[Rfam]
RNA sequence: ACAAGAACAACAAUAAGCAACGACCAUAAUAAGAACGACACGAAACGGCUUCUGCAUAACAACGACAACAAGCAGAGACGCAGCUAACUGAUUUAUUUGGGGAUGAUUGCCUCGGGAUUUUCCCGCAACCGCUAUGAAGAACAAGACUGCAUCAAGCAGCUCGGGCAGUUGGACGAAAGUUAGGGCAGAUCAGCGUUCAAACAAAUCCGUUUGCUUUUGGCUCCCUCGGUGGGAGCGCCGGUAAUAACAACAACGCAUGGCCGGCAGAUAUGACAAGUGAUGAAAAGGGGAAGCUUAGGCUUCCCCUUUUUUUGUGCGCAGGGUUUGUUGAGAAA
Numbered sequence: 001a002c003a004a005g006a007a008c009a010a011c012a013a014u015a016a017g018c019a020a021c022g023a024c025c026a027u028a029a030u031a032a033g034a035a036c037g038a039c040a041c042g043a044a045a046c047g048g049c050u051u052c053u054g055c056a057u058a059a060c061a062a063c064g065a066c067a068a069c070a071a072g073c074a075g076a077g078a079c080g081c082a083g084c085u086a087a088c089u090g091a092u093u094u095a096u097u098u099g100g101g102g103a104u105g106a107u108u109g110c111c112u113c114g115g116g117a118u119u120u121u122c123c124c125g126c127a128a129c130c131g132c133u134a135u136g137a138a139g140a141a142c143a144a145g146a147c148u149g150c151a152u153c154a155a156g157c158a159g160c161u162c163g164g165g166c167a168g169u170u171g172g173a174c175g176a177a178a179g180u181u182a183g184g185g186c187a188g189a190u191c192a193g194c195g196u197u198c199a200a201a202c203a204a205a206u207c208c209g210u211u212u213g214c215u216u217u218u219g220g221c222u223c224c225c226u227c228g229g230u231g232g233g234a235g236c237g238c239c240g241g242u243a244a245u246a247a248c249a250a251c252a253a254c255g256c257a258u259g260g261c262c263g264g265c266a267g268a269u270a271u272g273a274c275a276a277g278u279g280a281u282g283a284a285a286a287g288g289g290g291a292a293g294c295u296u297a298g299g300c301u302u303c304c305c306c307u308u309u310u311u312u313u314g315u316g317c318g319c320a321g322g323g324u325u326u327g328u329u330g331a332g333a334a335a
Stems, first nucleotide, its partner, number of pairs: 046080002049077003096201004109194002126171004147159004220236005254318005286309001287306008
Dot-bracket structure: .............................................((.(((.......................))).))...............((((.........((...............((((.................((((.....))))........)))).....................))...))))..................(((((.......))))).................(((((...........................(((((((((....))))))))..)....))))).................
Shown here is a 335-nucleotide sequence from Pseudomonas matsuisoli, a member of the family "Pseudomonas sRNA CrcZ".
For this family Rfam cites "The Pseudomonas putida Crc global regulator is an RNA binding protein that inhibits translation of the AlkS transcriptional regulator" (Moreno et al., Mol Microbiol, 2007).
Gene Ontology term of the family: carbon catabolite repression of transcription.
A search with the family's covariance model found it, with a score of 173 bits.